[Rfam]
RNA sequence: AAUCCGGUACGGCCCCCAGGGGCGAACCGGAGCCGGGGACCCACCGAUCUCCGGGGUGAAUCGACCCGACCGCCCACCCGGGCGAGGGCCGUAGGGCACGCCUUCCGAUACCGCCCGAACCCGUCAGCUAACUCGGUAGGCGGAGCACGGAAGGAGUA
Numbered sequence: 001a002a003u004c005c006g007g008u009a010c011g012g013c014c015c016c017c018a019g020g021g022g023c024g025a026a027c028c029g030g031a032g033c034c035g036g037g038g039a040c041c042c043a044c045c046g047a048u049c050u051c052c053g054g055g056g057u058g059a060a061u062c063g064a065c066c067c068g069a070c071c072g073c074c075c076a077c078c079c080g081g082g083c084g085a086g087g088g089c090c091g092u093a094g095g096g097c098a099c100g101c102c103u104u105c106c107g108a109u110a111c112c113g114c115c116c117g118a119a120c121c122c123g124u125c126a127g128c129u130a131a132c133u134c135g136g137u138a139g140g141c142g143g144a145g146c147a148c149g150g151a152a153g154g155a156g157u158a
Base pairs, nucleotide, nucleotide: 003031004030005029006028007027008026032137033136034135035134036133037132042053054122055121056120062091063090065088066087067086094116095115096114097113